[Rfam]
RNA sequence: AGCAGAGUAGGCGUGUGCGCGUUAAGUGCCGGGUGAACAGGGAGUUGUCAUCUGGACGAAAAGAGUUUCUUGCGGUGCACAGGCCGCAUCCCGCUGCA
Numbered sequence: 001a002g003c004a005g006a007g008u009a010g011g012c013g014u015g016u017g018c019g020c021g022u023u024a025a026g027u028g029c030c031g032g033g034u035g036a037a038c039a040g041g042g043a044g045u046u047g048u049c050a051u052c053u054g055g056a057c058g059a060a061a062a063g064a065g066u067u068u069c070u071u072g073c074g075g076u077g078c079a080c081a082g083g084c085c086g087c088a089u090c091c092c093g094c095u096g097c098a
Stems, first nucleotide, its partner, number of pairs: 002097004010085003014081006020074003026057002029055008040091003044087001061071004
This 98-nucleotide RNA from Hungatella hathewayi belongs to the Rfam family "THF (Tetrahydrofolate) riboswitch aptamer". Pairs were carried over by alignment from the consensus structure, which is taken from published work. Gene Ontology term of the family: tetrahydrofolate metabolic process. Taxonomically the source falls in Hungatella hathewayi (Bacteria, Clostridia, Lachnospiraceae, Hungatella). The literature on the family includes a 2010 paper in Chem Biol by Ames et al., "A eubacterial riboswitch class that senses the coenzyme tetrahydrofolate".